[Rfam]
RNA sequence: UCACAUAUAUUCCCUCUAACCGAGAUCAUGGGGGUUACAUCUCUCAUAUCCACUAGUGAAGGGAUUAGUGGAAAUAAUCGUAUCG
Numbered sequence: 001u002c003a004c005a006u007a008u009a010u011u012c013c014c015u016c017u018a019a020c021c022g023a024g025a026u027c028a029u030g031g032g033g034g035u036u037a038c039a040u041c042u043c044u045c046a047u048a049u050c051c052a053c054u055a056g057u058g059a060a061g062g063g064a065u066u067a068g069u070g071g072a073a074a075u076a077a078u079c080g081u082a083u084c085g
Stems, first nucleotide, its partner, number of pairs: 013033004022043005050071007

PhotoRC-II RNA: an 85-nucleotide sequence. The family's consensus secondary structure is taken from published work. Rfam classes the family as a cis-regulatory element.